[Rfam]
RNA sequence: AAUAGGAGAAUAACAAAUCAGAUUUUUCCUCUUGAUUUUUAACUUUUUCCUAAUGAAAAAAUUCAAAUUUAAUUAAAAAUGCUAAAAAUCUAGAGGAAAAAUUUAAUUUAUUGUUCUUCUAUU
Numbered sequence: 001a002a003u004a005g006g007a008g009a010a011u012a013a014c015a016a017a018u019c020a021g022a023u024u025u026u027u028c029c030u031c032u033u034g035a036u037u038u039u040u041a042a043c044u045u046u047u048u049c050c051u052a053a054u055g056a057a058a059a060a061a062u063u064c065a066a067a068u069u070u071a072a073u074u075a076a077a078a079a080u081g082c083u084a085a086a087a088a089u090c091u092a093g094a095g096g097a098a099a100a101a102u103u104u105a106a107u108u109u110a111u112u113g114u115u116c117u118u119c120u121a122u123u
Stems, first nucleotide, its partner, number of pairs: 001123013015109004020104008029095004034090006041083001045079004
This 123-nucleotide RNA from Gossypium anomalum belongs to the Rfam family "MIR7504 microRNA precursor family". The match comes from Rfam's covariance-model search (87 bits). The source organism's lineage runs through Eukaryota, Mesangiospermae, malvids, Malvales and Gossypium. Its family is annotated with RISC complex and miRNA-mediated post-transcriptional gene silencing in the Gene Ontology.